[Rfam]
RNA: mir-2363 microRNA precursor family
RNA sequence: CUAAGAAAUAUUCCUUGACCAAGUUGAAAUUAAUGAGAAUAGGUUUCAACUUGGUCAAGGAAUAUUUCUUAG
Numbered sequence: 001c002u003a004a005g006a007a008a009u010a011u012u013c014c015u016u017g018a019c020c021a022a023g024u025u026g027a028a029a030u031u032a033a034u035g036a037g038a039a040u041a042g043g044u045u046u047c048a049a050c051u052u053g054g055u056c057a058a059g060g061a062a063u064a065u066u067u068c069u070u071a072g
Stems, first nucleotide, its partner, number of pairs: 001072030033040002